[Rfam]
RNA sequence: AAAGCAGGCUGCAAUUGCAGUGCUUCCUUCUGUGGGAGCGCUGCCAUUCGCCUGCUGAGAGCAACCCUGUUAACGCUGUCUUCGGUUUCGCCUGUGCCGUGGUGAAACCGUUUGUUCUUAACAUGGACAAGU
Numbered sequence: 001a002a003a004g005c006a007g008g009c010u011g012c013a014a015u016u017g018c019a020g021u022g023c024u025u026c027c028u029u030c031u032g033u034g035g036g037a038g039c040g041c042u043g044c045c046a047u048u049c050g051c052c053u054g055c056u057g058a059g060a061g062c063a064a065c066c067c068u069g070u071u072a073a074c075g076c077u078g079u080c081u082u083c084g085g086u087u088u089c090g091c092c093u094g095u096g097c098c099g100u101g102g103u104g105a106a107a108c109c110g111u112u113u114g115u116u117c118u119u120a121a122c123a124u125g126g127a128c129a130a131g132u
Stems, first nucleotide, its partner, number of pairs: 003056006018043009065126002068123006075116001083110010
The record is a 132-nucleotide RNA sequence from Baryphthengus martii, which matches "Small nucleolar RNA SNORA69" in Rfam. The source organism's lineage runs through Eukaryota, Euteleostomi, Aves, Telluraves and Baryphthengus.